[Rfam]
Rfam assigns this 155-nucleotide RNA from Butyrivibrio hungatei to the family "Clostridiales-1 RNA". The match comes from Rfam's covariance-model search (109 bits). The family's consensus secondary structure is taken from published work. Lineage of the source: Bacteria > Bacillati > Lachnospirales > Lachnospiraceae > Butyrivibrio.
RNA sequence: UGAUAUAGGGGAUUAAGAUGAAGUAGUCUGCAGUGCUUGCACUAUGCAGACUACUUCAGUUUAAGACCCGAACAUACAUGAGGAAGUAGCGCGGCAGCGCGGAUUCCGAAUGUAUGUAGCAUGUCGAGAGCGCAAGCGGAGACAUGCGUAUAUCA
Numbered sequence: 001u002g003a004u005a006u007a008g009g010g011g012a013u014u015a016a017g018a019u020g021a022a023g024u025a026g027u028c029u030g031c032a033g034u035g036c037u038u039g040c041a042c043u044a045u046g047c048a049g050a051c052u053a054c055u056u057c058a059g060u061u062u063a064a065g066a067c068c069c070g071a072a073c074a075u076a077c078a079u080g081a082g083g084a085a086g087u088a089g090c091g092c093g094g095c096a097g098c099g100c101g102g103a104u105u106c107c108g109a110a111u112g113u114a115u116g117u118a119g120c121a122u123g124u125c126g127a128g129a130g131c132g133c134a135a136g137c138g139g140a141g142a143c144a145u146g147c148g149u150a151u152a153u154c155a
Stems, first nucleotide, its partner, number of pairs: 001155007010068002013065001016061002019058013032043004072117008082107004089100004119147007130137002
Dot-bracket structure: (((((((..((.(..((.(((((((((((((((((....))))..))))))))))))).))...).))...((((((((..((((...((((....))))...))))..)))))))).(((((((....((....))...))))))).)))))))